The family of this 170-nucleotide RNA sequence from Halobacillus karajensis is "glmS glucosamine-6-phosphate activated ribozyme aptamer". Pairs were carried over by alignment from the consensus structure, which is taken from published work. A search with the family's covariance model found it, with a score of 117 bits. This entry contains a glucosamine-6-phosphate activated ribozyme that is found in the mRNA for GlmS. GlmS is an enzyme that uses fructose-6-phosphate and glutamine to generate glucosamine-6-phosphate. The ribozyme catalyses self cleavage of the glmS mRNA that is thought to regulate GlmS activity.

[Rfam]
RNA sequence: CAUUAUUAUAAAGCGCCAGGACUGUGUAGGCGGACGCAAGCUGCACAGUUGACGAGGUGGAGGUUCAUCGAGUUUUCGGCGGAUGCCUCCCGGUUGCUGCACUUCAACCGAAUGUCCCAAUGUAAAACAGAAAGGCGACUUUCUGAACAAAACAUUAAGGACGAAGUGAC
Numbered sequence: 001c002a003u004u005a006u007u008a009u010a011a012a013g014c015g016c017c018a019g020g021a022c023u024g025u026g027u028a029g030g031c032g033g034a035c036g037c038a039a040g041c042u043g044c045a046c047a048g049u050u051g052a053c054g055a056g057g058u059g060g061a062g063g064u065u066c067a068u069c070g071a072g073u074u075u076u077c078g079g080c081g082g083a084u085g086c087c088u089c090c091c092g093g094u095u096g097c098u099g100c101a102c103u104u105c106a107a108c109c110g111a112a113u114g115u116c117c118c119a120a121u122g123u124a125a126a127a128c129a130g131a132a133a134g135g136c137g138a139c140u141u142u143c144u145g146a147a148c149a150a151a152a153c154a155u156u157a158a159g160g161a162c163g164a165a166g167u168g169a170c
Stems, first nucleotide, its partner, number of pairs: 020050008029041001059090005068079004091110006115160002119156003128145007